[Rfam]
RNA: Small nucleolar RNA U3
RNA sequence: AUGACUGUACUUUUUCAGAAUCGUUGAUUCAGUAAAAACUACAGCCAGAUCUUCUGUAAAGAAGUCAAACCCCACAUCUGCGAUGACGAGUAAUAGCCUUGGCGGUUUAAACGGGAUGUUUGACACAGGAAGGGAGCAAUCCUUGACCUGCGUCCUAGAUGGCCUACAUCCAGGCAUUAUUCCAGCCAGGAUGAGCUGCCAAGGCAAUAUGAGCAGA
Numbered sequence: 001a002u003g004a005c006u007g008u009a010c011u012u013u014u015u016c017a018g019a020a021u022c023g024u025u026g027a028u029u030c031a032g033u034a035a036a037a038a039c040u041a042c043a044g045c046c047a048g049a050u051c052u053u054c055u056g057u058a059a060a061g062a063a064g065u066c067a068a069a070c071c072c073c074a075c076a077u078c079u080g081c082g083a084u085g086a087c088g089a090g091u092a093a094u095a096g097c098c099u100u101g102g103c104g105g106u107u108u109a110a111a112c113g114g115g116a117u118g119u120u121u122g123a124c125a126c127a128g129g130a131a132g133g134g135a136g137c138a139a140u141c142c143u144u145g146a147c148c149u150g151c152g153u154c155c156u157a158g159a160u161g162g163c164c165u166a167c168a169u170c171c172a173g174g175c176a177u178u179a180u181u182c183c184a185g186c187c188a189g190g191a192u193g194a195g196c197u198g199c200c201a202a203g204g205c206a207a208u209a210u211g212a213g214c215a216g217a
Stems, first nucleotide, its partner, number of pairs: 003039001006036001008034004017028001019025001049065002053062002077217005096205012113164001122154003126150004131144004167193005173187003